The record is a 116-nucleotide RNA from Olea europaea, which matches "Small nucleolar RNA Z278" in Rfam. The match comes from Rfam's covariance-model search (42 bits). snoZ278 is a C/D box small nucleolar RNA. Its methylation guide targets have not been reported. Rfam classes the family as a C/D-box small nucleolar RNA. A reference for the family is Chen et al. (2003), "The high diversity of snoRNAs in plants: identification and comparative study of 120 snoRNA genes from Oryza sativa", Nucleic Acids Res. Gene Ontology terms of the family: RNA processing and nucleolus.
RNA sequence: GUCCAUGAAGAUCUGAUCCAAAUAAUUGAGAUGCAUUUGAUCUCAAGUCCCUGAAAAGGGAGAACCUACUUGGGGUUGGUACAUUAGUACAUGAAAUUACUGGAUAUGUCUGAGAC
Dot-bracket structure: (((.............................................((((....)))).....................................................)))
Numbered sequence: 001g002u003c004c005a006u007g008a009a010g011a012u013c014u015g016a017u018c019c020a021a022a023u024a025a026u027u028g029a030g031a032u033g034c035a036u037u038u039g040a041u042c043u044c045a046a047g048u049c050c051c052u053g054a055a056a057a058g059g060g061a062g063a064a065c066c067u068a069c070u071u072g073g074g075g076u077u078g079g080u081a082c083a084u085u086a087g088u089a090c091a092u093g094a095a096a097u098u099a100c101u102g103g104a105u106a107u108g109u110c111u112g113a114g115a116c
Stems, first nucleotide, its partner, number of pairs: 001116003049060004